[Rfam]
RNA sequence: GCCGAUAAGGGCAAACCUGUCGAAAGGCAGGGGCGCAAAGCCAUGGGCCUACGGCUCUCAAAAAGAGCUACGGUCGCCAGGCUGCCGGCU
Numbered sequence: 001g002c003c004g005a006u007a008a009g010g011g012c013a014a015a016c017c018u019g020u021c022g023a024a025a026g027g028c029a030g031g032g033g034c035g036c037a038a039a040g041c042c043a044u045g046g047g048c049c050u051a052c053g054g055c056u057c058u059c060a061a062a063a064a065g066a067g068c069u070a071c072g073g074u075c076g077c078c079a080g081g082c083u084g085c086c087g088g089c090u
Base pairs, nucleotide, nucleotide: 001090003087004086011036012035016031017030018029019028020027021026034076039083040082041081042080044079045078046077047074048073049072